[Rfam]
RNA sequence: GGUGCGGUAGCUCAGUCGGUAGAGCAAAGGACUGAAAAUCCUUGUGUCGGCGGUUCGAUCCCGUCCCACACCA
Numbered sequence: 001g002g003u004g005c006g007g008u009a010g011c012u013c014a015g016u017c018g019g020u021a022g023a024g025c026a027a028a029g030g031a032c033u034g035a036a037a038a039u040c041c042u043u044g045u046g047u048c049g050g051c052g053g054u055u056c057g058a059u060c061c062c063g064u065c066c067c068a069c070a071c072c073a
Base pairs, nucleotide, nucleotide: 001072002071003070004069006067007066010025011024012023013022027043028042029041030040031039049065050064051063052062053061
Overview: This 73-nucleotide RNA sequence from Niastella yeongjuensis belongs to the Rfam family "tRNA". Taxonomically the source falls in Niastella (Bacteria, Pseudomonadati, Bacteroidota, Chitinophagales). Transfer RNA (tRNA) molecules are approximately 80 nucleotides in length. Their secondary structure includes four short double-helical elements and three loops (D, anti-codon, and T loops). The base pairs follow the family's consensus structure, which is taken from published work. Rfam links the family to the GO term triplet codon-amino acid adaptor activity. Rfam classes the family as a transfer RNA. For this family Rfam cites "The tertiary structure of tRNA and the development of the genetic code" (Hou, Trends Biochem Sci, 1993).